[Rfam]
RNA sequence: GAAAAAGGUCUUUCUAAGGUAGAGGAAAGUCCAUACUUGCAUAGUCUGAGAUGACUAUAGUGUUUGUGUGAGUACAUAAAAAAUAAAACUCAACGGCUAGGAAACUAGUUGAUGGCAGAAAAUACUUCUAAGUAAGGACUAACCUCCUUAUAUGAUGCUAUUUUCUUUAAGGUGCCACAGAGACGAGCUCUUUAGAAAUAAAGAGAGUGAAACGCGGUAAACCCCUCAAGCAAGAAACCUAAAUAAUGGUAAGGGACUUUAAGUUUUGGAAUUCCAACAGAACUUAAAAAUCUAGGUAACUAGGUUAGAUUAAUUACUCACUUCUACUGCUAUUAGGUAGAAACAGAAUAUGGCUUACAUUC
Numbered sequence: 001g002a003a004a005a006a007g008g009u010c011u012u013u014c015u016a017a018g019g020u021a022g023a024g025g026a027a028a029g030u031c032c033a034u035a036c037u038u039g040c041a042u043a044g045u046c047u048g049a050g051a052u053g054a055c056u057a058u059a060g061u062g063u064u065u066g067u068g069u070g071a072g073u074a075c076a077u078a079a080a081a082a083a084u085a086a087a088a089c090u091c092a093a094c095g096g097c098u099a100g101g102a103a104a105c106u107a108g109u110u111g112a113u114g115g116c117a118g119a120a121a122a123u124a125c126u127u128c129u130a131a132g133u134a135a136g137g138a139c140u141a142a143c144c145u146c147c148u149u150a151u152a153u154g155a156u157g158c159u160a161u162u163u164u165c166u167u168u169a170a171g172g173u174g175c176c177a178c179a180g181a182g183a184c185g186a187g188c189u190c191u192u193u194a195g196a197a198a199u200a201a202a203g204a205g206a207g208u209g210a211a212a213c214g215c216g217g218u219a220a221a222c223c224c225c226u227c228a229a230g231c232a233a234g235a236a237a238c239c240u241a242a243a244u245a246a247u248g249g250u251a252a253g254g255g256a257c258u259u260u261a262a263g264u265u266u267u268g269g270a271a272u273u274c275c276a277a278c279a280g281a282a283c284u285u286a287a288a289a290a291u292c293u294a295g296g297u298a299a300c301u302a303g304g305u306u307a308g309a310u311u312a313a314u315u316a317c318u319c320a321c322u323u324c325u326a327c328u329g330c331u332a333u334u335a336g337g338u339a340g341a342a343a344c345a346g347a348a349u350a351u352g353g354c355u356u357a358c359a360u361u362c
Base pairs, nucleotide, nucleotide: 027356028355029354031353032352033351034350035349036234037233038232039231040230041058042057043056044055045054046053064229065228066227068225069092070091071090072089073088093113094111095110096109097108098107099106114224115223117166118165119164120163125157127155128154132151133150134149135148136147137146138145172222173221174218175217176216188205189204190203191202192201193200194199238254239253240252258288259287260286261285262284263283264282289306290305291304292303293302294301323341324340325339326338327337328336

A member of the RNA family "Bacterial RNase P class B" from Candidatus Mycoplasma haematolamae, 362 nucleotides long. Rfam describes the family as follows. Ribonuclease P (RNase P) is a ubiquitous endoribonuclease, found in archaea, bacteria and eukarya as well as chloroplasts and mitochondria. Taxonomically the source falls in Candidatus Mycoplasma haematolamae (Bacteria, Bacillati, Mycoplasmataceae, Mycoplasma). By type it is a ribozyme. It scores 219 bits against the family's covariance model. On this family, see Frank and Pace, Annu Rev Biochem 1998: "Ribonuclease P: unity and diversity in a tRNA processing ribozyme". Its Rfam clan is "RNaseP clan".